[Rfam]
RNA sequence: CUGCAGGUUAAGUUACAGAGCAGCUGAUCAGUGCUGCACUGUCGUUCCCCCUGCAAAUAUCAGCCUGUUUCCUACUAUCCCUGUCUGUCUGCACCUCCACAGCCGACAGGGACGCUUGGUCUCAAACAC
Number, nucleotide and partner (000 for none) at each position: 001c000002u000003g054004c053005a052006g051007g050008u000009u000010a000011a000012g000013u000014u000015a042016c041017a040018g039019a000020g037021c036022a035023g034024c033025u000026g000027a000028u000029c000030a000031g000032u000033g024034c023035u022036g021037c020038a000039c018040u017041g016042u015043c000044g000045u000046u000047c000048c000049c000050c007051c006052u005053g004054c003055a000056a000057a000058u000059a000060u000061c000062a000063g000064c000065c000066u000067g000068u000069u000070u000071c000072c000073u000074a000075c000076u000077a000078u000079c000080c110081c109082u108083g107084u000085c105086u000087g103088u102089c000090u000091g000092c000093a000094c000095c000096u000097c000098c000099a000100c000101a000102g088103c087104c000105g085106a000107c083108a082109g081110g080111g000112a000113c000114g000115c000116u000117u000118g000119g000120u000121c000122u000123c000124a000125a000126a000127c000128a000129c000
This 129-nucleotide RNA from Albula goreensis belongs to the Rfam family "Small nucleolar RNA SNORA63". The family has 8 seed sequences and 1,279 matches in Rfam 15.1. The organism belongs to Albula, within Eukaryota. E3 belongs to the H/ACA class of snoRNAs and is involved in the processing of eukaryotic pre-rRNA and has regions of complementarity to 18S rRNA. E3 is encoded in introns in the gene for protein synthesis initiation factor 4AII. Rfam links the family to the GO terms nucleolus and RNA processing. The base pairs follow the family's consensus structure, which was predicted with PFOLD.